[Rfam]
RNA sequence: GGGUGCGGCUGAAUCAGAGAUUGGCUGCACAAAUUUUAAAAUUAUUGUAUUAGGAUAAAGUUAUGUCUCUGAAUGCAGAAACUAAAGCAGCAAUCGUUGCUGAAUACGCACAAUGUGAA
Numbered sequence: 001g002g003g004u005g006c007g008g009c010u011g012a013a014u015c016a017g018a019g020a021u022u023g024g025c026u027g028c029a030c031a032a033a034u035u036u037u038a039a040a041a042u043u044a045u046u047g048u049a050u051u052a053g054g055a056u057a058a059a060g061u062u063a064u065g066u067c068u069c070u071g072a073a074u075g076c077a078g079a080a081a082c083u084a085a086a087g088c089a090g091c092a093a094u095c096g097u098u099g100c101u102g103a104a105u106a107c108g109c110a111c112a113a114u115g116u117g118a119a
Stems, first nucleotide, its partner, number of pairs: 007026006050073002053070003
RNA: Ribosomal S15 leader